[Rfam]
Shown here is a 394-nucleotide RNA from Shouchella lonarensis, a member of the family "Bacterial RNase P class B". About the family: Ribonuclease P (RNase P) is a ubiquitous endoribonuclease, found in archaea, bacteria and eukarya as well as chloroplasts and mitochondria. Its best characterised activity is the generation of mature 5'-ends of tRNAs by cleaving the 5'-leader elements of precursor-tRNAs.
RNA sequence: CCUUUCAGGUAAUCGCUGCGCCAAAAGCGUAGAGGAAAGUCCAUACUCGCACAAGCUGCGAUGCUUGUAGUGUUCGUGUCUAGCGAAUUCAUAAGCUAGAGUAGUCAGCAUGUCUGGCUAACGGCAAGCGUUUUGCCUAAGUCUUUUAAGAUACGGCAUACACGCUUUGAAAGUGCCACAGUGACGUAGUCUGCUUGGAAACGAGUAGAGUGGAACGCGGUAAACCCCUCGAGCGAGCAACCCAAACAAUGGUAGGGGCAUUGUCUUGCCUGGAAAUGAACAGAGCAAGAUGAAUGAUGAAACAACUAUGUUUCAUUGUAGAUAGAUGGUUACCACCUGAGUACGAGGCUCAUCCCCGUUUGUAGUACGAUGGAACAGAACAUGGCUUAUCGAU
Numbered sequence: 001c002c003u004u005u006c007a008g009g010u011a012a013u014c015g016c017u018g019c020g021c022c023a024a025a026a027g028c029g030u031a032g033a034g035g036a037a038a039g040u041c042c043a044u045a046c047u048c049g050c051a052c053a054a055g056c057u058g059c060g061a062u063g064c065u066u067g068u069a070g071u072g073u074u075c076g077u078g079u080c081u082a083g084c085g086a087a088u089u090c091a092u093a094a095g096c097u098a099g100a101g102u103a104g105u106c107a108g109c110a111u112g113u114c115u116g117g118c119u120a121a122c123g124g125c126a127a128g129c130g131u132u133u134u135g136c137c138u139a140a141g142u143c144u145u146u147u148a149a150g151a152u153a154c155g156g157c158a159u160a161c162a163c164g165c166u167u168u169g170a171a172a173g174u175g176c177c178a179c180a181g182u183g184a185c186g187u188a189g190u191c192u193g194c195u196u197g198g199a200a201a202c203g204a205g206u207a208g209a210g211u212g213g214a215a216c217g218c219g220g221u222a223a224a225c226c227c228c229u230c231g232a233g234c235g236a237g238c239a240a241c242c243c244a245a246a247c248a249a250u251g252g253u254a255g256g257g258g259c260a261u262u263g264u265c266u267u268g269c270c271u272g273g274a275a276a277u278g279a280a281c282a283g284a285g286c287a288a289g290a291u292g293a294a295u296g297a298u299g300a301a302a303c304a305a306c307u308a309u310g311u312u313u314c315a316u317u318g319u320a321g322a323u324a325g326a327u328g329g330u331u332a333c334c335a336c337c338u339g340a341g342u343a344c345g346a347g348g349c350u351c352a353u354c355c356c357c358g359u360u361u362g363u364a365g366u367a368c369g370a371u372g373g374a375a376c377a378g379a380a381c382a383u384g385g386c387u388u389a390u391c392g393a394u
Base pairs, nucleotide, nucleotide: 005393006392007390008334009333010332011331012330013329014328016032017031018030019029020028021027037388038387039386041385042384043383044382046237047236048235049234050233051068052067053066054065055064056063074232075231076230078228079100080099081098082097083096084095101122102120103119104118105117106116107115123227124226126167127166128165129164134158135157136156137155141152142151143150173225174224175221176220177219190209191208192207193206194205195204196203197202241257242256243255261293262292263291264290265289266288267287294319295318296317297316298315299314300313301312302311303310304309336373337372341368342367343366344365